[Rfam]
RNA sequence: UGAGUACGAAAGAUGAUCGCGGGUGCUUGAUUGCACUCGAGGAAAGUCCGAGCUCCUUAGGGCAGGGUGCUGGAUAACGUCCAGCGAGGGCGACCUCAGGGAAAGUGCCACAGAAAUGCAGACCGCCUAACCUUGGUUAGGUAAGGAUGGAACGGUGCGGUAAGAGCGCACCAGCAGUCAGGUGACUGACUGGCUAGGUAAACCCCACCUGGAGCAAGACCGAAUAGGGAAGGGAUGAAGCUGCCCGCUGAGCCUUCCGGGUUGUGUCGCUUGAGCUGUCAGGCAACUGCCGGCCCAGAUAAAUGAUCAUCACCGCUAACGCGGAACAGAACUCGGCUUAUUGACUACUCAGACA
Number, nucleotide and partner (000 for none) at each position: 001u351002g350003a349004g348005u347006a346007c000008g345009a000010a000011a341012g311013a310014u309015g308016a307017u306018c305019g000020c039021g038022g037023g036024u035025g034026c033027u000028u000029g000030a000031u000032u000033g026034c025035a024036c023037u022038c021039g020040a000041g000042g000043a000044a339045a338046g337047u000048c336049c335050g334051a333052g332053c214054u213055c212056c211057u000058u000059a000060g246061g245062g244063c243064a000065g210066g209067g208068u207069g206070c084071u083072g082073g081074a080075u000076a000077a000078c000079g000080u074081c073082c072083a071084g070085c099086g097087a096088g095089g094090g000091c000092g000093a000094c089095c088096u087097c086098a000099g085100g205101g204102a000103a000104a000105g203106u202107g199108c198109c197110a000111c000112a000113g000114a000115a000116a000117u000118g000119c000120a000121g000122a000123c146124c145125g142126c141127c140128u139129a138130a137131c136132c000133u000134u000135g000136g131137u130138u129139a128140g127141g126142u125143a000144a000145g124146g123147a000148u000149g000150g000151a000152a000153c000154g172155g171156u170157g169158c168159g167160g000161u000162a000163a000164g000165a000166g000167c159168g158169c157170a156171c155172c154173a000174g194175c192176a191177g190178u189179c188180a187181g186182g000183u000184g000185a000186c181187u180188g179189a178190c177191u176192g175193g000194c174195u000196a000197g109198g108199u107200a000201a000202a106203c105204c101205c100206c069207a068208c067209c066210u065211g056212g055213a054214g053215c000216a000217a000218g268219a267220c266221c264222g000223a000224a000225u000226a000227g000228g258229g257230a256231a255232g254233g253234g000235a000236u000237g000238a000239a249240g248241c247242u000243g063244c062245c061246c060247g241248c240249u239250g000251a000252g000253c233254c232255u231256u230257c229258c228259g000260g000261g000262u000263u000264g221265u000266g220267u219268c218269g000270c000271u000272u000273g000274a000275g294276c293277u292278g291279u000280c289281a288282g287283g000284c000285a000286a000287c282288u281289g280290c000291c278292g277293g276294c275295c000296c000297a000298g000299a000300u000301a000302a000303a000304u000305g018306a017307u016308c015309a014310u013311c012312a000313c000314c000315g000316c000317u000318a000319a000320c000321g000322c000323g000324g000325a000326a000327c000328a000329g000330a000331a000332c052333u051334c050335g049336g048337c046338u045339u044340a000341u011342u000343g000344a000345c008346u006347a005348c004349u003350c002351a001352g000353a000354c000355a000